The record is a 93-nucleotide RNA sequence from Rhododendron simsii, which matches "small nucleolar RNA snoR114" in Rfam. Its family is annotated with nucleolus and RNA processing in the Gene Ontology. For this family Rfam cites "Mining small RNA sequencing data: a new approach to identify small nucleolar RNAs in Arabidopsis" (Chen and Wu, Nucleic Acids Res, 2009). Pairs were carried over by alignment from the consensus structure, which was predicted with RNAalifold. By type it is a C/D-box small nucleolar RNA. Lineage of the source: Eukaryota > Tracheophyta > Mesangiospermae > Pentapetalae > Rhododendron.
[Rfam]
RNA sequence: GAGCUGUGAUGAAGCCUUCUGCGCCCAGUGUGAAGGUUGGGUCCUUCACGACCGUCCGAUUAAUAAGGAUGAAAUCGUGGCGCAUCUGAGCUC
Numbered sequence: 001g002a003g004c005u006g007u008g009a010u011g012a013a014g015c016c017u018u019c020u021g022c023g024c025c026c027a028g029u030g031u032g033a034a035g036g037u038u039g040g041g042u043c044c045u046u047c048a049c050g051a052c053c054g055u056c057c058g059a060u061u062a063a064u065a066a067g068g069a070u071g072a073a074a075u076c077g078u079g080g081c082g083c084a085u086c087u088g089a090g091c092u093c
Base pairs, nucleotide, nucleotide: 001093002092003091004090